[Rfam]
RNA: Clostridiales-1 RNA
RNA sequence: CUGCCCAAGGGGAUCAAAGUUUUCAUUUUCCAUGCUUGCAUGGAAAAAAUGAAAACCUUGAUCCCCGCACAAAAACGAGAAGGGAGCGGCAGAGCCGCGGAGUUCGAGUUUUUGCAGGGAUGCGGGAGCAGCGUAAGCUGCGAAGCAUCCCGUAGGGCAA
Numbered sequence: 001c002u003g004c005c006c007a008a009g010g011g012g013a014u015c016a017a018a019g020u021u022u023u024c025a026u027u028u029u030c031c032a033u034g035c036u037u038g039c040a041u042g043g044a045a046a047a048a049a050u051g052a053a054a055a056c057c058u059u060g061a062u063c064c065c066c067g068c069a070c071a072a073a074a075a076c077g078a079g080a081a082g083g084g085a086g087c088g089g090c091a092g093a094g095c096c097g098c099g100g101a102g103u104u105c106g107a108g109u110u111u112u113u114g115c116a117g118g119g120a121u122g123c124g125g126g127a128g129c130a131g132c133g134u135a136a137g138c139u140g141c142g143a144a145g146c147a148u149c150c151c152g153u154a155g156g157g158c159a160a
Stems, first nucleotide, its partner, number of pairs: 002159005010065004016059002019056011030043005070114007079105003086098005117151007128141004